[Rfam]
RNA sequence: GCGCUGGUUUAGCUCAGUGGUUACUUCGAACAAAUUCUAGUCUGUCUAGAUACUGCUCUCUAUCCCUCCCCGGAAUCGAACCACGGCGCUGUCCAGUGCUUUU
Numbered sequence: 001g002c003g004c005u006g007g008u009u010u011a012g013c014u015c016a017g018u019g020g021u022u023a024c025u026u027c028g029a030a031c032a033a034a035u036u037c038u039a040g041u042c043u044g045u046c047u048a049g050a051u052a053c054u055g056c057u058c059u060c061u062a063u064c065c066c067u068c069c070c071c072g073g074a075a076u077c078g079a080a081c082c083a084c085g086g087c088g089c090u091g092u093c094c095a096g097u098g099c100u101u102u103u
Stems, first nucleotide, its partner, number of pairs: 002098006012087002015085001017084004025080005
Rfam assigns this 103-nucleotide RNA sequence from Collichthys lucidus to the family "Vault RNA". The organism belongs to Collichthys, within Eukaryota. About the family: This family of RNAs are found as part of the enigmatic vault ribonucleoprotein complex. The complex consists of a major vault protein (MVP), two minor vault proteins (VPARP and TEP1), and several small untranslated RNA molecules. It has been suggested that the vault complex is involved in drug resistance. Rfam classes the family as a non-coding RNA gene.